[Rfam]
RNA: Bacillus-plasmid RNA
RNA sequence: UUUGUCAACCUAUUGGAAGCAUGAAGAUCAAGAAGAAAAGGAGUUGACAAAUAAAGUAUG
Numbered sequence: 001u002u003u004g005u006c007a008a009c010c011u012a013u014u015g016g017a018a019g020c021a022u023g024a025a026g027a028u029c030a031a032g033a034a035g036a037a038a039a040g041g042a043g044u045u046g047a048c049a050a051a052u053a054a055a056g057u058a059u060g
Stems, first nucleotide, its partner, number of pairs: 001051009